[Rfam]
RNA sequence: CGCGGGGUGGAGCAGCUCGGUAGCUCGCUGGGCUCAUAACUCAGAGGUCGCAGGUUCAAAUCCUGUCCCCGCUA
Numbered sequence: 001c002g003c004g005g006g007g008u009g010g011a012g013c014a015g016c017u018c019g020g021u022a023g024c025u026c027g028c029u030g031g032g033c034u035c036a037u038a039a040c041u042c043a044g045a046g047g048u049c050g051c052a053g054g055u056u057c058a059a060a061u062c063c064u065g066u067c068c069c070c071g072c073u074a
Base pairs, nucleotide, nucleotide: 002072003071004070005069006068007067010026011025012024013023028044029043030042031041032040050066051065052064053063054062
Shown here is a 74-nucleotide RNA sequence from Streptomyces rimosus, a member of the family "tRNA".
Taxonomically the source falls in Streptomyces (Bacteria, Bacillati, Actinomycetota, Streptomycetaceae).
By type it is a transfer RNA.